[Rfam]
RNA: Bacillaceae-1 RNA
RNA sequence: AAAUUAGGGGCUUCGCCUAAGAACACCACGUUCUGUGGGUCUCUUGUGGCACUGUCGAAAUUACCCACAUCCUGUGGC
Numbered sequence: 001a002a003a004u005u006a007g008g009g010g011c012u013u014c015g016c017c018u019a020a021g022a023a024c025a026c027c028a029c030g031u032u033c034u035g036u037g038g039g040u041c042u043c044u045u046g047u048g049g050c051a052c053u054g055u056c057g058a059a060a061u062u063a064c065c066c067a068c069a070u071c072c073u074g075u076g077g078c
Stems, first nucleotide, its partner, number of pairs: 012059004017054001026049004065077004